[Rfam]
RNA sequence: CAUGUUUCGGGUUCACCACAGACCUUGAUUUAGCGUCACACAAUUAAGGCACGCGGUGAAUGCCAAAGGGG
Numbered sequence: 001c002a003u004g005u006u007u008c009g010g011g012u013u014c015a016c017c018a019c020a021g022a023c024c025u026u027g028a029u030u031u032a033g034c035g036u037c038a039c040a041c042a043a044u045u046a047a048g049g050c051a052c053g054c055g056g057u058g059a060a061u062g063c064c065a066a067a068g069g070g071g
Stems, first nucleotide, its partner, number of pairs: 003069001005067002009063001011061006019053001023049008
RNA: mir-124 microRNA precursor family